About this RNA:
A member of the RNA family "Mammalian CPEB3 ribozyme" from Parnassius apollo, 77 nucleotides long. It scores 56 bits against the family's covariance model.
RNA sequence: UAAGAAAAUAAAGGGGUCAUUGUAGAAGCGUGCUCGUCGCGACCCCUGCCAGCCCUUUCCAGGGGUGCAAUUCUACA
Numbered sequence: 001u002a003a004g005a006a007a008a009u010a011a012a013g014g015g016g017u018c019a020u021u022g023u024a025g026a027a028g029c030g031u032g033c034u035c036g037u038c039g040c041g042a043c044c045c046c047u048g049c050c051a052g053c054c055c056u057u058u059c060c061a062g063g064g065g066u067g068c069a070a071u072u073c074u075a076c077a
Base pairs, nucleotide, nucleotide: 013046014045015044016043017042018041021077022076023075024074025073026072027071028040029039030038050067051066053064054063055062056061